A member of the RNA family "Bacterial large subunit ribosomal RNA" from Sulfuritortus calidifontis, 352 nucleotides of a longer RNA. Pairs were carried over by alignment from the consensus structure, which is taken from published work.
RNA sequence: UGAGAGAACUCAGGAGAAGGAACUCGGCAAAUUGACACCGUAACUUCGGGAGAAGGUGUGCCCUGGUAGGGUGAAGGCCCUUGCGGCUGGAGCUCGAAGGGGUUGCAGUGAAAAGGUGGCUGCGACUGUUUAAUAAAAACACAGCACUCUGCAAACUCGAAAGAGGACGUAUAGGGUGUGACGCCUGCCCGGUGCCGGAAGGUUAAGUGAUGGGGUGCAAGCUCUUGAUCGAAGCCCCGGUAAACGGCGGCCGUAACUAUAACGGUCCUAAGGUAGCGAAAUUCCUUGUCGGGUAAGUUCCGACCCGCACGAAUGGCGUAACGAUGGCCACACUGUCUCCUCCUGAGACUCA
Numbered sequence: 001u002g003a004g005a006g007a008a009c010u011c012a013g014g015a016g017a018a019g020g021a022a023c024u025c026g027g028c029a030a031a032u033u034g035a036c037a038c039c040g041u042a043a044c045u046u047c048g049g050g051a052g053a054a055g056g057u058g059u060g061c062c063c064u065g066g067u068a069g070g071g072u073g074a075a076g077g078c079c080c081u082u083g084c085g086g087c088u089g090g091a092g093c094u095c096g097a098a099g100g101g102g103u104u105g106c107a108g109u110g111a112a113a114a115g116g117u118g119g120c121u122g123c124g125a126c127u128g129u130u131u132a133a134u135a136a137a138a139a140c141a142c143a144g145c146a147c148u149c150u151g152c153a154a155a156c157u158c159g160a161a162a163g164a165g166g167a168c169g170u171a172u173a174g175g176g177u178g179u180g181a182c183g184c185c186u187g188c189c190c191g192g193u194g195c196c197g198g199a200a201g202g203u204u205a206a207g208u209g210a211u212g213g214g215g216u217g218c219a220a221g222c223u224c225u226u227g228a229u230c231g232a233a234g235c236c237c238c239g240g241u242a243a244a245c246g247g248c249g250g251c252c253g254u255a256a257c258u259a260u261a262a263c264g265g266u267c268c269u270a271a272g273g274u275a276g277c278g279a280a281a282u283u284c285c286u287u288g289u290c291g292g293g294u295a296a297g298u299u300c301c302g303a304c305c306c307g308c309a310c311g312a313a314u315g316g317c318g319u320a321a322c323g324a325u326g327g328c329c330a331c332a333c334u335g336u337c338u339c340c341u342c343c344u345g346a347g348a349c350u351c352a
Stems, first nucleotide, its partner, number of pairs: 001352004009347008018338003035059005044049001060103005068081005104108001116331007123323002127141003144179008152169001156165003182318004187248003192245002194241005201236003207230001212225005249267006268272001278305001288304006